[Rfam]
A member of the RNA family "DnaX ribosomal frameshifting element" from Erwinia sp. Leaf53, 62 nucleotides long. The organism belongs to Erwinia, within Bacteria. About the family: This family represents a ribosomal frameshifting element found in the mRNA of the dnaX gene in E. coli. The dnaX gene has two encoded products tau and gamma which are produced in a 1:1 ratio. The base pairs follow the family's consensus structure, which is taken from published work. By type it is a frameshift element. For this family Rfam cites "Structural probing and mutagenic analysis of the stem-loop required for Escherichia coli dnaX ribosomal frameshifting: programmed efficiency of 50%" (Larsen et al., J Mol Biol, 1997).
RNA sequence: AGCAGGGAGCAAACAAAGCAAAAAAGAGUGAGCCGGCAGCGCAAAGUGCGCGGCCGGCGAGU
Numbered sequence: 001a002g003c004a005g006g007g008a009g010c011a012a013a014c015a016a017a018g019c020a021a022a023a024a025a026g027a028g029u030g031a032g033c034c035g036g037c038a039g040c041g042c043a044a045a046g047u048g049c050g051c052g053g054c055c056g057g058c059g060a061g062u
Stems, first nucleotide, its partner, number of pairs: 032058006039051004